[Rfam]
RNA sequence: CCGAUACGAUGAUGAUAACAUAGUUCAGCAGACUAACACUGAUGAGCAGUAGUAAGUCUUUCGCUCCUAUCUGAUGUAUCUG
Numbered sequence: 001c002c003g004a005u006a007c008g009a010u011g012a013u014g015a016u017a018a019c020a021u022a023g024u025u026c027a028g029c030a031g032a033c034u035a036a037c038a039c040u041g042a043u044g045a046g047c048a049g050u051a052g053u054a055a056g057u058c059u060u061u062c063g064c065u066c067c068u069a070u071c072u073g074a075u076g077u078a079u080c081u082g
Base pairs, nucleotide, nucleotide: 004079005078006077007076008075
Small nucleolar RNA snR60/Z15/Z230/Z193/J17: an 82-nucleotide sequence from Carlito syrichta. Taxonomically the source falls in Carlito (Eukaryota, Bilateria, Craniata, Mammalia). Rfam links the family to the GO terms RNA processing and nucleolus. The base pairs follow the family's consensus structure. The family's RNA type in Rfam is C/D-box small nucleolar RNA.